Shown here is a 79-nucleotide sequence from Sphingomonas jinjuensis, a member of the family "ZMP/ZTP riboswitch aptamer (pfl RNA motif)". The base pairs follow the family's consensus structure, which is taken from published work. The match comes from Rfam's covariance-model search (56 bits). Lineage of the source: Bacteria > Alphaproteobacteria > Sphingomonadales > Sphingomonadaceae > Sphingomonas.
[Rfam]
RNA sequence: CGCCGCUCGCGUGACUGGCGCAUCGGUGGACGACCACGGGGAAGCGCGAGCCUGAACGCCGCGCGCCUGGGCACCACGC
Dot-bracket structure: ....((((((((..(([[[[[....((((....))))..))..))))))))......(((..]]]]]..))).......